[Rfam]
RNA sequence: CUUCACCGAACCCAGCCAGAGGGGCCGCUUCGGGUCCCGCCCCUGACCAUAGGUGGCCAGCAGCGCCUGCGCUUC
Numbered sequence: 001c002u003u004c005a006c007c008g009a010a011c012c013c014a015g016c017c018a019g020a021g022g023g024g025c026c027g028c029u030u031c032g033g034g035u036c037c038c039g040c041c042c043c044u045g046a047c048c049a050u051a052g053g054u055g056g057c058c059a060g061c062a063g064c065g066c067c068u069g070c071g072c073u074u075c
Base pairs, nucleotide, nucleotide: 015025016024017023031071032070038065039064043060044059045058047056048055049054
RNA: ASpks TB sRNA